[Rfam]
RNA sequence: UGGCGAAGGUCCCAGCAGGGAGGGUAAAACAAACUCUAUUAGAGACCUCUCUAACAACAAUUUAAUACCUUCGUAGAUUCAACUGCCGUUUCGUAGGACUUGCUAAUUGCUAAUCUUUCUUUUGAUUUUUAGCGAGUCUUUUAUAUAUUGGCUACAUUUUU
Numbered sequence: 001u002g003g004c005g006a007a008g009g010u011c012c013c014a015g016c017a018g019g020g021a022g023g024g025u026a027a028a029a030c031a032a033a034c035u036c037u038a039u040u041a042g043a044g045a046c047c048u049c050u051c052u053a054a055c056a057a058c059a060a061u062u063u064a065a066u067a068c069c070u071u072c073g074u075a076g077a078u079u080c081a082a083c084u085g086c087c088g089u090u091u092c093g094u095a096g097g098a099c100u101u102g103c104u105a106a107u108u109g110c111u112a113a114u115c116u117u118u119c120u121u122u123u124g125a126u127u128u129u130u131a132g133c134g135a136g137u138c139u140u141u142u143a144u145a146u147a148u149u150g151g152c153u154a155c156a157u158u159u160u161u
Stems, first nucleotide, its partner, number of pairs: 003074007011020003028050001034044004085152004090147001091145001097138002100135007